[Rfam]
RNA sequence: AGUUUAGUUCUGGAGUCUGUUGCAGAAAUGUUCACAUUGCAGCCUCUGUCGGGUUCCCAUCGAUCUGUGAAUUCAGCU
Numbered sequence: 001a002g003u004u005u006a007g008u009u010c011u012g013g014a015g016u017c018u019g020u021u022g023c024a025g026a027a028a029u030g031u032u033c034a035c036a037u038u039g040c041a042g043c044c045u046c047u048g049u050c051g052g053g054u055u056c057c058c059a060u061c062g063a064u065c066u067g068u069g070a071a072u073u074c075a076g077c078u
Stems, first nucleotide, its partner, number of pairs: 013046003017042002022077002025074003029039002050067006
Rfam assigns this 78-nucleotide RNA sequence from Microcaecilia unicolor to the family "Mammalian CPEB3 ribozyme". The family's consensus secondary structure is taken from published work.